[Rfam]
RNA sequence: AUAACGCCGGGCGAUGGUAUCCGCCCGAUCCAAACCGUGUCCCCUUCGCGGACGCUGAUGAUGCCUGCCCUGAA
Number, nucleotide and partner (000 for none) at each position: 001a000002u000003a000004a000005c000006g000007c000008c000009g000010g025011g024012c023013g022014a000015u000016g065017g064018u063019a062020u061021c060022c013023g012024c011025c010026c000027g000028a000029u000030c000031c000032a000033a000034a000035c000036c000037g055038u054039g053040u052041c051042c050043c000044c000045u000046u000047c000048g000049c000050g042051g041052a040053c039054g038055c037056u000057g000058a000059u000060g021061a020062u019063g018064c017065c016066u000067g000068c000069c000070c000071u000072g000073a000074a000

This 74-nucleotide RNA sequence from Alistipes communis belongs to the Rfam family "Fluoride riboswitch aptamer (crcB RNA motif)". NCBI's taxonomy places the organism under Bacteria, Bacteroidota, Bacteroidia, Rikenellaceae, Alistipes. It scores 41 bits against the family's covariance model.